[Rfam]
RNA sequence: UCGCCCACAAUGCCUUCAACGGUUUCAACACGGAUGUGGCUUGGUGCCAGUGUGAGCGGACACGAUACACCAGCCGGUCGGCUUUAUGCCGAAGCCCUCCUUAGGGGCAUCCUUGCUGGAGCCGUGACCGGCGUCUCGUACGUUUCAUCAGCCGGCUCCUCCUUUGGUCUCCUCGCGCUAACCCCGUAGCGUGUGGUUUUUAGCGGGCUCCAGGCCCGCUUUUUUUU
Numbered sequence: 001u002c003g004c005c006c007a008c009a010a011u012g013c014c015u016u017c018a019a020c021g022g023u024u025u026c027a028a029c030a031c032g033g034a035u036g037u038g039g040c041u042u043g044g045u046g047c048c049a050g051u052g053u054g055a056g057c058g059g060a061c062a063c064g065a066u067a068c069a070c071c072a073g074c075c076g077g078u079c080g081g082c083u084u085u086a087u088g089c090c091g092a093a094g095c096c097c098u099c100c101u102u103a104g105g106g107g108c109a110u111c112c113u114u115g116c117u118g119g120a121g122c123c124g125u126g127a128c129c130g131g132c133g134u135c136u137c138g139u140a141c142g143u144u145u146c147a148u149c150a151g152c153c154g155g156c157u158c159c160u161c162c163u164u165u166g167g168u169c170u171c172c173u174c175g176c177g178c179u180a181a182c183c184c185c186g187u188a189g190c191g192u193g194u195g196g197u198u199u200u201u202a203g204c205g206g207g208c209u210c211c212a213g214g215c216c217c218g219c220u221u222u223u224u225u226u227u
Stems, first nucleotide, its partner, number of pairs: 005167003019125009029115002032112006038075003042072001044071001050063004078092005095106004128155005171196002174193007202220008
RNA: Burkholderia sRNA Bp1_Cand871_SIPHT
Organism: Paraburkholderia tropica